[Rfam]
RNA sequence: GGAUAUGUGAGGAAAACGCUUCACAGGGUGGAAACAAGGACACACUCCUAAGAGUCGUUUUGAA
Numbered sequence: 001g002g003a004u005a006u007g008u009g010a011g012g013a014a015a016a017c018g019c020u021u022c023a024c025a026g027g028g029u030g031g032a033a034a035c036a037a038g039g040a041c042a043c044a045c046u047c048c049u050a051a052g053a054g055u056c057g058u059u060u061u062g063a064a
Base pairs, nucleotide, nucleotide: 014060015059016058017057018056021053022052025049026048027047028045029044030043
The family of this 64-nucleotide sequence from Synechococcus sp. CC9605 is "Cyano-1 RNA".
Rfam's curators put it in the seed alignment.
Lineage of the source: Bacteria > Bacillati > Cyanobacteriota > Cyanophyceae > Synechococcus.
By type it is a small RNA.